Overview:
Shown here is a 185-nucleotide RNA from Methylomagnum ishizawai, a member of the family "6S / SsrS RNA". The source organism's lineage runs through Bacteria, Pseudomonadati, Gammaproteobacteria, Methylococcaceae and Methylomagnum. It is annotated as a non-coding RNA gene. E. coli 6S RNA was the first non coding RNA to be sequenced, but its function was unknown until recently.

[Rfam]
RNA sequence: UAUUCCCUGCGGCGUACGAAGCCCACUGGGUUACUUCUUGAGCCUAAUCCAAAACCCCGGGUCCAUUAGAGUUCGCGAUGUGCGCAAGUCCGCCCCGAGCGGAAAGCCUGAUUCGGUACUUCUUGGUCCCACCUGAACCAUUUGGUUCAAGGGCGAAAGUGAGUUACGGCGCAGGCGGGGAAUAC
Numbered sequence: 001u002a003u004u005c006c007c008u009g010c011g012g013c014g015u016a017c018g019a020a021g022c023c024c025a026c027u028g029g030g031u032u033a034c035u036u037c038u039u040g041a042g043c044c045u046a047a048u049c050c051a052a053a054a055c056c057c058c059g060g061g062u063c064c065a066u067u068a069g070a071g072u073u074c075g076c077g078a079u080g081u082g083c084g085c086a087a088g089u090c091c092g093c094c095c096c097g098a099g100c101g102g103a104a105a106g107c108c109u110g111a112u113u114c115g116g117u118a119c120u121u122c123u124u125g126g127u128c129c130c131a132c133c134u135g136a137a138c139c140a141u142u143u144g145g146u147u148c149a150a151g152g153g154c155g156a157a158a159g160u161g162a163g164u165u166a167c168g169g170c171g172c173a174g175g176c177g178g179g180g181a182a183u184a185c
Stems, first nucleotide, its partner, number of pairs: 002183009012172004017168002035153003039149006059130003063126003068121001070120001073118001076115003084107002089103005